[Rfam]
RNA sequence: AUUAUAAUGAGCGAUGGAGUUCGCUCGAAUCCUGGUUAACCAGGUGAUGACUCCUACCAUAGU
Number, nucleotide and partner (000 for none) at each position: 001a000002u000003u000004a000005u000006a000007a000008u000009g000010a025011g024012c023013g022014a000015u000016g054017g053018a052019g051020u050021u049022c013023g012024c011025u010026c000027g000028a000029a000030u000031c044032c043033u042034g041035g000036u000037u000038a000039a000040c000041c034042a033043g032044g031045u000046g000047a000048u000049g021050a020051c019052u018053c017054c016055u000056a000057c000058c000059a000060u000061a000062g000063u000
RNA: Fluoride riboswitch aptamer (crcB RNA motif)